[Rfam]
RNA sequence: GAUUGGGUGAGGGAUAGCAGCGAAAAUCCUUUUUUGAUUUUUUAUCAAAAAAGAUUGAAGUGCAUAGCCCGACCCGCU
Numbered sequence: 001g002a003u004u005g006g007g008u009g010a011g012g013g014a015u016a017g018c019a020g021c022g023a024a025a026a027u028c029c030u031u032u033u034u035u036g037a038u039u040u041u042u043u044a045u046c047a048a049a050a051a052a053g054a055u056u057g058a059a060g061u062g063c064a065u066a067g068c069c070c071g072a073c074c075c076g077c078u
Base pairs, nucleotide, nucleotide: 011070012069013068015066016065020061021060025056026055027054028053031051032050033049034048035047036046037045038044
Overview:
The record is a 78-nucleotide RNA from Flavobacterium sp. TAB 87, which matches "Flavo-1 RNA" in Rfam. By type it is a small RNA. NCBI's taxonomy places the organism under Bacteria, Pseudomonadati, Flavobacteriia, Flavobacteriales, Flavobacterium. A search with the family's covariance model found it, with a score of 66 bits.